[Rfam]
RNA sequence: AUUUGUAUAUCGGGAGAGACUGAUAAGCUUAUUAGCGCCGAAGGAGCAACCACCCCGGAAACUCUCAGGCAAAAGGACCGUUAAACGCAU
Numbered sequence: 001a002u003u004u005g006u007a008u009a010u011c012g013g014g015a016g017a018g019a020c021u022g023a024u025a026a027g028c029u030u031a032u033u034a035g036c037g038c039c040g041a042a043g044g045a046g047c048a049a050c051c052a053c054c055c056c057g058g059a060a061a062c063u064c065u066c067a068g069g070c071a072a073a074a075g076g077a078c079c080g081u082u083a084a085a086c087g088c089a090u
Stems, first nucleotide, its partner, number of pairs: 006085001008083002011080003020035004037070003040066002044064003050058002
RNA: Glycine riboswitch aptamer
Organism: Candidatus Pelagibacter sp. HTCC7211